[Rfam]
RNA sequence: GGGGAAGGAAGUACAUAGGAACUCUCUGCGCGUCCUUCUAUACUUCUCAAAAGUGAAAAGAAGCUGCCUUUCCCUCAUUAGGCUCUAGGAGUGCUGUGAUGGGCAAAAUGGCAGCUGGCACUCCAUAAUGUCCCUGUUCUGUGUUUCUUAGUGUGCUCAGGGAAGACACCAUGGUUGGUAUCCAACAGCGUAGUCACAAAGGGAUUUGAUUGUUGAGAGUGCUGGUAUCCGUGGCUAUGAUCUGGUGUUUCCAAGUUAAGACC
Dot-bracket structure: ...............((((..(((((.((..............((((((...((...................(((((((.((.........).).))))))).......))...))..........(((((.......(((.((((((.........)))))).)))........)))))...................)))).......)).))))).....................))))...................
This 263-nucleotide RNA sequence from Carlito syrichta belongs to the Rfam family "Small Cajal body specific RNA 6". About the family: U88 is small Cajal body specific RNA (scaRNA). scaRNAs are a novel class of small nuclear RNAs which localise to the Cajal bodies. U88 is found associated with both fibrillarin and Gar1p and co-localises with coilin in Cajal bodies. A reference for the family is Darzacq et al. (2002), "Cajal body-specific small nuclear RNAs: a novel class of 2'-O-methylation and pseudouridylation guide RNAs", EMBO J. Its family is annotated with nucleolus and RNA processing in the Gene Ontology. The base pairs follow the family's consensus structure, which is taken from published work. The match comes from Rfam's covariance-model search (114 bits).